RNA sequence: UGCCUCUGAGGUGAUGGCGUGCCACCUUACCCAACCGCCCUCUGGUUACAGACGGCUGAUGACGCCUGACAACUU
Numbered sequence: 001u002g003c004c005u006c007u008g009a010g011g012u013g014a015u016g017g018c019g020u021g022c023c024a025c026c027u028u029a030c031c032c033a034a035c036c037g038c039c040c041u042c043u044g045g046u047u048a049c050a051g052a053c054g055g056c057u058g059a060u061g062a063c064g065c066c067u068g069a070c071a072a073c074u075u
Base pairs, nucleotide, nucleotide: 010026011025012024013023016066017065018064019063020062037056038055039054